Nuclear RNase P: a 330-nucleotide sequence from Torulaspora delbrueckii.
Rfam links the family to the GO terms ribonuclease P activity, ribonuclease P complex and tRNA processing.
The literature on the family includes a 1998 paper in Annu Rev Biochem by Frank and Pace, "Ribonuclease P: unity and diversity in a tRNA processing ribozyme".
It is annotated as a ribozyme.
It scores 87 bits against the family's covariance model.
The source organism's lineage runs through Eukaryota, Fungi, Saccharomycotina, Saccharomycetes and Torulaspora.
Rfam 15.1 lists 3,848 matches to the family in 1,862 species.
RNA sequence: ACAGCACUAAUUCCUACGAUUUAGAAACCUGUUUGCUAACGGAGUCUCAGGGCUCACACUAAUAGCAGGUGGGAAAUUCGGUGAAUCACUGCGGAACCCGACAGAGCCUAACAAGCUUUGUCGACCGGUUGCCUUGGCGACUUUUCCGUGAGGAGGGCCUGGGGAACCAGGCUCAUAUGGUCAUUGUCACAAGAAAUCAACUCGGUAGUCCUGUACUAUCGAGGAUGGGAAGGCAAUGGACGUUCCGUUUAACUUGAUCUCAUCAAGGUUUGUUGAGUGCAAUCGUAGGACGGUCUUAGACCUGAACCCGAUACCGAUUACUGGUGUUGU
Numbered sequence: 001a002c003a004g005c006a007c008u009a010a011u012u013c014c015u016a017c018g019a020u021u022u023a024g025a026a027a028c029c030u031g032u033u034u035g036c037u038a039a040c041g042g043a044g045u046c047u048c049a050g051g052g053c054u055c056a057c058a059c060u061a062a063u064a065g066c067a068g069g070u071g072g073g074a075a076a077u078u079c080g081g082u083g084a085a086u087c088a089c090u091g092c093g094g095a096a097c098c099c100g101a102c103a104g105a106g107c108c109u110a111a112c113a114a115g116c117u118u119u120g121u122c123g124a125c126c127g128g129u130u131g132c133c134u135u136g137g138c139g140a141c142u143u144u145u146c147c148g149u150g151a152g153g154a155g156g157g158c159c160u161g162g163g164g165a166a167c168c169a170g171g172c173u174c175a176u177a178u179g180g181u182c183a184u185u186g187u188c189a190c191a192a193g194a195a196a197u198c199a200a201c202u203c204g205g206u207a208g209u210c211c212u213g214u215a216c217u218a219u220c221g222a223g224g225a226u227g228g229g230a231a232g233g234c235a236a237u238g239g240a241c242g243u244u245c246c247g248u249u250u251a252a253c254u255u256g257a258u259c260u261c262a263u264c265a266a267g268g269u270u271u272g273u274u275g276a277g278u279g280c281a282a283u284c285g286u287a288g289g290a291c292g293g294u295c296u297u298a299g300a301c302c303u304g305a306a307c308c309c310g311a312u313a314c315c316g317a318u319u320a321c322u323g324g325u326g327u328u329g330u
Base pairs, nucleotide, nucleotide: 001330002329003328004327007324008323009322012290013289014288015287016286017285018284027070028069029068030067031066042055043054044053045052046051079316080315081314082313083312093246094245095244096243143156144155145154146153147152157172158171159170160169161168162167182238183237184236185235186234187233188232201223202222291304292302293301294300